[Rfam]
RNA sequence: UGUCUCCUCCAAUCCUCCUCCUUUGGUGGAUACUCUGCCCGGCUCUCGCGAGCUGGGCAUUUUUUU
Numbered sequence: 001u002g003u004c005u006c007c008u009c010c011a012a013u014c015c016u017c018c019u020c021c022u023u024u025g026g027u028g029g030a031u032a033c034u035c036u037g038c039c040c041g042g043c044u045c046u047c048g049c050g051a052g053c054u055g056g057g058c059a060u061u062u063u064u065u066u
Base pairs, nucleotide, nucleotide: 008030009029010028011027014026015025036059037058038057039056040055041054042053043052

A member of the RNA family "Betaproteobacteria toxic small RNA" from Thiobacillus denitrificans, 66 nucleotides long. From the family's description: Overexpression in amino aid rich medium attenuates growth, suggesting role in repressing amino acid intake and metabolism. On this family, see Kimelman et al., Genome Res 2012: "A vast collection of microbial genes that are toxic to bacteria". The family's consensus secondary structure was predicted with WAR.